[Rfam]
RNA sequence: CUCCCUCAGCCUUACUGCAGGGGCUUUUGCUAUAAAGUGCCCUGACAUUGCCAGAGGGCACAGGAAAGAGCGCCCAUCCCCAGUGAGACUCUGUGGUCUUGUGGGGCUUACAUGGUGAGCUCACAGU
Numbered sequence: 001c002u003c004c005c006u007c008a009g010c011c012u013u014a015c016u017g018c019a020g021g022g023g024c025u026u027u028u029g030c031u032a033u034a035a036a037g038u039g040c041c042c043u044g045a046c047a048u049u050g051c052c053a054g055a056g057g058g059c060a061c062a063g064g065a066a067a068g069a070g071c072g073c074c075c076a077u078c079c080c081c082a083g084u085g086a087g088a089c090u091c092u093g094u095g096g097u098c099u100u101g102u103g104g105g106g107c108u109u110a111c112a113u114g115g116u117g118a119g120c121u122c123a124c125a126g127u
Stems, first nucleotide, its partner, number of pairs: 003058005009052001011050001018044005023038005069121003073117001078106005085100004
A member of the RNA family "Small nucleolar RNA SNORA49" from Camelus dromedarius, 127 nucleotides long. Rfam describes the family as follows. The snoRNA ACA49 has no identified RNA target. A search with the family's covariance model found it, with a score of 105 bits.